[Rfam]
RNA sequence: UUGGUUUAAAUCAUUGUGUGACUACACUUUGAAAAUUAAACUCACACAAAGUGAUAGGACAUUGAUUUCAUCUAA
Dot-bracket structure: ((((.(.((((((.(((....((((((((((...............))))))).))).))).)))))).).))))
Annotation: The record is a 75-nucleotide RNA from Medicago truncatula, which matches "MIR5269 microRNA precursor family" in Rfam. NCBI's taxonomy places the organism under Eukaryota, Embryophyta, eudicotyledons, Fabaceae, Medicago. Rfam links the family to the GO terms miRNA-mediated post-transcriptional gene silencing and RISC complex.